transfer-messenger RNA: a 400-nucleotide RNA sequence from Patiriisocius marinus.

[Rfam]
RNA sequence: GGGGCCGACUGGUUUUGACAGCGGGUUAACUGGUACAGUAAGCAUGUAGAGCGCUGGGAAACAGCUCUUAAAUCUCAUUUUUCACACUUUUUAAACGGCGAGAACAACUACGCCCUAGCUGCAUAAUCCGAAUCAUAGUAGGAUAGUGCCUCGGUCUACAAGGUAGACAAGCAGGAAGUCACUCGAGAGCCUUGGUUUACGGCAAUCGAUUUAGUGACUUCGUAAAAGUAAACCUAUCGAGCGUAGUACCUAGAUGCGCUUGAGACAUCUAAUUUAGGAUAAGGGACGCGUUGGUAGUUUUCGACCGGCAAAUUCACGAAAAUCUAAAUGAAAACUAAACAUGUAGAAAGCCGUGCAAGUGCACGUUUGGACGAGGGUUCGAAUCCCUCCGGCUCCACUA
Dot-bracket structure: (((((((...........(((((.((...((.((((.((...((((([[[[[..(((((((..]]]]].........))))))).......................................(.((((.(.......).)))).)..............................((((((((((..(((...[[[[[[)))..))))....))))))........]]]]]]...(((((((((..[.[[.[.)))))))))...........].]].]..[.[[...[..[[[.(((((((]]]..]....]].]...........)))))))...)))))......)).)))).)).)).))).))...(((((.......))))))))))))....
Numbered sequence: 001g002g003g004g005c006c007g008a009c010u011g012g013u014u015u016u017g018a019c020a021g022c023g024g025g026u027u028a029a030c031u032g033g034u035a036c037a038g039u040a041a042g043c044a045u046g047u048a049g050a051g052c053g054c055u056g057g058g059a060a061a062c063a064g065c066u067c068u069u070a071a072a073u074c075u076c077a078u079u080u081u082u083c084a085c086a087c088u089u090u091u092u093a094a095a096c097g098g099c100g101a102g103a104a105c106a107a108c109u110a111c112g113c114c115c116u117a118g119c120u121g122c123a124u125a126a127u128c129c130g131a132a133u134c135a136u137a138g139u140a141g142g143a144u145a146g147u148g149c150c151u152c153g154g155u156c157u158a159c160a161a162g163g164u165a166g167a168c169a170a171g172c173a174g175g176a177a178g179u180c181a182c183u184c185g186a187g188a189g190c191c192u193u194g195g196u197u198u199a200c201g202g203c204a205a206u207c208g209a210u211u212u213a214g215u216g217a218c219u220u221c222g223u224a225a226a227a228g229u230a231a232a233c234c235u236a237u238c239g240a241g242c243g244u245a246g247u248a249c250c251u252a253g254a255u256g257c258g259c260u261u262g263a264g265a266c267a268u269c270u271a272a273u274u275u276a277g278g279a280u281a282a283g284g285g286a287c288g289c290g291u292u293g294g295u296a297g298u299u300u301u302c303g304a305c306c307g308g309c310a311a312a313u314u315c316a317c318g319a320a321a322a323u324c325u326a327a328a329u330g331a332a333a334a335c336u337a338a339a340c341a342u343g344u345a346g347a348a349a350g351c352c353g354u355g356c357a358a359g360u361g362c363a364c365g366u367u368u369g370g371a372c373g374a375g376g377g378u379u380c381g382a383a384u385c386c387c388u389c390c391g392g393c394u395c396c397a398c399u400a
Stems, first nucleotide, its partner, number of pairs: 001396007019369002021366003025362002030359002033356004038351002043343005048068005055084007124146001126144004131139001177219006183209004189203003195233006237263009248280001250278002253275001283317001285315002290309001293306003297335007373389005
Record summary:
The family is grouped with related families in Rfam's "tRNA clan". It scores 126 bits against the family's covariance model.